[Rfam]
RNA sequence: GGGCUAAUGAUGGAAAAAUCAUUAUUGGAAAAGAAUGACAUGAACAAAGGAACCACUGAAGUGC
Number, nucleotide and partner (000 for none) at each position: 001g064002g000003g062004c061005u060006a000007a000008u000009g000010a000011u000012g000013g000014a000015a000016a000017a000018a000019u000020c000021a000022u000023u000024a000025u000026u000027g000028g000029a000030a000031a000032a000033g000034a000035a000036u000037g000038a000039c000040a000041u000042g000043a000044a000045c000046a000047a000048a000049g000050g000051a000052a000053c000054c000055a000056c000057u000058g000059a000060a005061g004062u003063g000064c001

Rfam assigns this 64-nucleotide sequence from Pan troglodytes to the family "Small nucleolar RNA SNORD42".
NCBI's taxonomy places the organism under Eukaryota, Opisthokonta, Bilateria, Theria, Pan.
Its family is annotated with nucleolus and RNA processing in the Gene Ontology.
A search with the family's covariance model found it, with a score of 66 bits.
snoRNA U42 is found in intron 3 of the ribosomal protein L23a (RPL23a) gene in humans and is also present in mice.
Pairs were carried over by alignment from the consensus structure, which was predicted with PFOLD.
The family's RNA type in Rfam is C/D-box small nucleolar RNA.